The record is an 85-nucleotide sequence from Paenibacillus sp. oral taxon 786, which matches "Group II catalytic intron D1-D4-1" in Rfam.
RNA sequence: UAACCCUGUUCGUGAGAGCAGGCUGAGCGUGCAGAAGUCAGCCGAUGUCAUAGUACACAGCUUGUCGCGAGGGCUGUGGAAGGAC
Numbered sequence: 001u002a003a004c005c006c007u008g009u010u011c012g013u014g015a016g017a018g019c020a021g022g023c024u025g026a027g028c029g030u031g032c033a034g035a036a037g038u039c040a041g042c043c044g045a046u047g048u049c050a051u052a053g054u055a056c057a058c059a060g061c062u063u064g065u066c067g068c069g070a071g072g073g074c075u076g077u078g079g080a081a082g083g084a085c
Stems, first nucleotide, its partner, number of pairs: 001025002005022007037046003047085003056078008

It is one of the family's seed sequences.